This 75-nucleotide RNA sequence from Eptesicus fuscus belongs to the Rfam family "mir-9223 microRNA precursor family". NCBI's taxonomy places the organism under Eukaryota, Sarcopterygii, Amniota, Vespertilionidae, Eptesicus. The family's consensus secondary structure was predicted with RNAalifold. Its family is annotated with RISC complex and miRNA-mediated post-transcriptional gene silencing in the Gene Ontology.
RNA sequence: GUGGUUCUCUGGUGAUGCACCCUGGAAUCGGGCUCCCUCCUCUCUGGUUCUGGGUGUGUCACCGGGGAACUGCAG
Numbered sequence: 001g002u003g004g005u006u007c008u009c010u011g012g013u014g015a016u017g018c019a020c021c022c023u024g025g026a027a028u029c030g031g032g033c034u035c036c037c038u039c040c041u042c043u044c045u046g047g048u049u050c051u052g053g054g055u056g057u058g059u060c061a062c063c064g065g066g067g068a069a070c071u072g073c074a075g
Stems, first nucleotide, its partner, number of pairs: 001073002004070013018056005024051009